[Rfam]
Source information
UnaL2 LINE 3' element: a 54-nucleotide sequence from Hemibagrus wyckioides. Rfam's curators write: The eel long interspersed element (LINE) UnaL2 and its partner short interspersed element (SINE) share a conserved 3' tail containing a stem-loop that is critical for their retrotransposition. Its family is annotated with transposition, RNA-mediated in the Gene Ontology. The family's consensus secondary structure is taken from published work.

RNA sequence: UCAAAGUACUUCUGUACGUCGCUCUGGAUAAGAGCGUCUGUCAAAUGCCAGAAA
Numbered sequence: 001u002c003a004a005a006g007u008a009c010u011u012c013u014g015u016a017c018g019u020c021g022c023u024c025u026g027g028a029u030a031a032g033a034g035c036g037u038c039u040g041u042c043a044a045a046u047g048c049c050a051g052a053a054a
Stems, first nucleotide, its partner, number of pairs: 013043001014041003020036006